[Rfam]
RNA sequence: ACAGCAGACACGGGGUGUCCCGCGCAAGGCCCGCCCAUCGGACGGGCAGGCGGCGGGGCUGAGAUCACACCCGUUGAACCUGAUCCAGCUCAGACUGGCGAAGGGAUUGUCGAGCGCACGUUGA
Numbered sequence: 001a002c003a004g005c006a007g008a009c010a011c012g013g014g015g016u017g018u019c020c021c022g023c024g025c026a027a028g029g030c031c032c033g034c035c036c037a038u039c040g041g042a043c044g045g046g047c048a049g050g051c052g053g054c055g056g057g058g059c060u061g062a063g064a065u066c067a068c069a070c071c072c073g074u075u076g077a078a079c080c081u082g083a084u085c086c087a088g089c090u091c092a093g094a095c096u097g098g099c100g101a102a103g104g105g106a107u108u109g110u111c112g113a114g115c116g117c118a119c120g121u122u123g124a
Stems, first nucleotide, its partner, number of pairs: 007111004011073004016067001017059007079104003085098004
This 124-nucleotide RNA from Corticibacter populi belongs to the Rfam family "TPP riboswitch aptamer (THI element)". The organism belongs to Corticibacter, within Bacteria.